[Rfam]
RNA sequence: UACCGGCUUUCCAUCAGCCGGCGCGGGCUACUGAAAAGGCUUGUCCUUCAUUGCCAGGUGUGCGGGCGGGAUCUCCCCAUCCAAUCCACGGCAGCACUGUUCGGUUUCGAGUUUUCGGCUCGUCGCGCCUCCAUCGCGCGUCGGCUCUGAAGGCGUCGG
Numbered sequence: 001u002a003c004c005g006g007c008u009u010u011c012c013a014u015c016a017g018c019c020g021g022c023g024c025g026g027g028c029u030a031c032u033g034a035a036a037a038g039g040c041u042u043g044u045c046c047u048u049c050a051u052u053g054c055c056a057g058g059u060g061u062g063c064g065g066g067c068g069g070g071a072u073c074u075c076c077c078c079a080u081c082c083a084a085u086c087c088a089c090g091g092c093a094g095c096a097c098u099g100u101u102c103g104g105u106u107u108c109g110a111g112u113u114u115u116c117g118g119c120u121c122g123u124c125g126c127g128c129c130u131c132c133a134u135c136g137c138g139c140g141u142c143g144g145c146u147c148u149g150a151a152g153g154c155g156u157c158g159g
Stems, first nucleotide, its partner, number of pairs: 001023001003021006038055003062139003108122005
Annotation:
The record is a 159-nucleotide RNA sequence from Rhodopseudomonas faecalis, which matches "speF leader" in Rfam. The source organism's lineage runs through Bacteria, Pseudomonadota, Hyphomicrobiales, Nitrobacteraceae and Rhodopseudomonas. The literature on the family includes a 2012 paper in RNA Biol by del Val et al., "A survey of sRNA families in alpha-proteobacteria". About the family: This family is a putative regulatory RNA structure that is found upstream of the speF gene encoding ornithine decarboxylase in Agrobacterium tumefaciens and other alpha-proteobacteria. The family's consensus secondary structure was predicted with RNAalifold.